The family of this 130-nucleotide sequence from Phocoena sinus is "Small nucleolar RNA SNORA61". Gene Ontology terms of the family: nucleolus and RNA processing. About the family: ACA61 is a member of the H/ACA class of snoRNA that guide the sites of modification of uridines to pseudouridines. Rfam 15.1 lists 881 matches to the family in 421 species. By type it is an H/ACA-box small nucleolar RNA. A search with the family's covariance model found it, with a score of 109 bits. The base pairs follow the family's consensus structure, which was predicted with PFOLD.

RNA sequence: ACCCGGUCCCCUUUCCCAUUAGAUCUGAACACUGCUCUUAGUGGUCAUAAAGGGAGGAAUAGUAGGAAUGAAGCUGUCCUCACAGUGCUUGUAGUCUGCUAUAUAGCAUGUGGGCUAGUUUCAAACAAGG
Numbered sequence: 001a002c003c004c005g006g007u008c009c010c011c012u013u014u015c016c017c018a019u020u021a022g023a024u025c026u027g028a029a030c031a032c033u034g035c036u037c038u039u040a041g042u043g044g045u046c047a048u049a050a051a052g053g054g055a056g057g058a059a060u061a062g063u064a065g066g067a068a069u070g071a072a073g074c075u076g077u078c079c080u081c082a083c084a085g086u087g088c089u090u091g092u093a094g095u096c097u098g099c100u101a102u103a104u105a106g107c108a109u110g111u112g113g114g115c116u117a118g119u120u121u122c123a124a125a126c127a128a129g130g
Base pairs, nucleotide, nucleotide: 002054003053016044017043018042019041020040022037023036025034074118075117076116078114079113080112090108091107092106